[Rfam]
RNA sequence: AAUAUAAAAUGAAUAAAUACUUAUUUAUACUGUGAAUUGGCGCAGAGUCUCUACAAGACACCGGAAAUGUCUAACAAUAAGUGAGCAUAGAGCUUGC
Numbered sequence: 001a002a003u004a005u006a007a008a009a010u011g012a013a014u015a016a017a018u019a020c021u022u023a024u025u026u027a028u029a030c031u032g033u034g035a036a037u038u039g040g041c042g043c044a045g046a047g048u049c050u051c052u053a054c055a056a057g058a059c060a061c062c063g064g065a066a067a068u069g070u071c072u073a074a075c076a077a078u079a080a081g082u083g084a085g086c087a088u089a090g091a092g093c094u095u096g097c
Stems, first nucleotide, its partner, number of pairs: 018083008030045005056072005
RNA: Purine riboswitch aptamer
Organism: Streptococcus urinalis